[Rfam]
RNA sequence: CGGCCCGGCGCGUGAUCAAAGCUUUUCCAUGACCCCGGGGCAAAUACCCACCCAACCCCACCUCACCGAACCCGCACAGCAACCCUGGUCACCCGGAAGAGUGGCAAUCCUCAACUCGGCUGGAUUUCCGCCCGGUUCGCAGGCAUAUGCUCGCCACGAUCACAACCCACCACAGACAUGCGACGGCCCCCGCCGGGACGGCAAUCCCAGUGCGAGGGCCUGACCACCGAGGAAGAAGAGAGCUUCCUG
Numbered sequence: 001c002g003g004c005c006c007g008g009c010g011c012g013u014g015a016u017c018a019a020a021g022c023u024u025u026u027c028c029a030u031g032a033c034c035c036c037g038g039g040g041c042a043a044a045u046a047c048c049c050a051c052c053c054a055a056c057c058c059c060a061c062c063u064c065a066c067c068g069a070a071c072c073c074g075c076a077c078a079g080c081a082a083c084c085c086u087g088g089u090c091a092c093c094c095g096g097a098a099g100a101g102u103g104g105c106a107a108u109c110c111u112c113a114a115c116u117c118g119g120c121u122g123g124a125u126u127u128c129c130g131c132c133c134g135g136u137u138c139g140c141a142g143g144c145a146u147a148u149g150c151u152c153g154c155c156a157c158g159a160u161c162a163c164a165a166c167c168c169a170c171c172a173c174a175g176a177c178a179u180g181c182g183a184c185g186g187c188c189c190c191c192g193c194c195g196g197g198a199c200g201g202c203a204a205u206c207c208c209a210g211u212g213c214g215a216g217g218g219c220c221u222g223a224c225c226a227c228c229g230a231g232g233a234a235g236a237a238g239a240g241a242g243c244u245u246c247c248u249g
Stems, first nucleotide, its partner, number of pairs: 002228002012075003089104004094099001119155001121153003185220005191214003195208004231247005
Dot-bracket structure: .((........(((..........................................................))).............((((.(....).))))..............(.(((...........................))).).............................(((((.(((.((((......))))...))).)))))......))..(((((.......)))))..

Shown here is a 249-nucleotide RNA from Streptomyces spongiae, a member of the family "Streptomyces sRNA 4677". Rfam describes the family as follows. Located in the intergenic region between anti-sigma factor SCO4677 gene and a putative regulatory protein gene SCO4676. scr4677 expression requires the SCO4677 activity and scr4677 sRNA itself seem to affect the levels of the SCO4676-associated transcripts. By type it is a small RNA. The pairing is the family consensus, mapped onto this sequence. The family has 12 seed sequences and 563 matches in Rfam 15.1. A search with the family's covariance model found it, with a score of 128 bits. The literature on the family includes a 2014 paper in PLoS One by Hindra et al., "Complex intra-operonic dynamics mediated by a small RNA in Streptomyces coelicolor".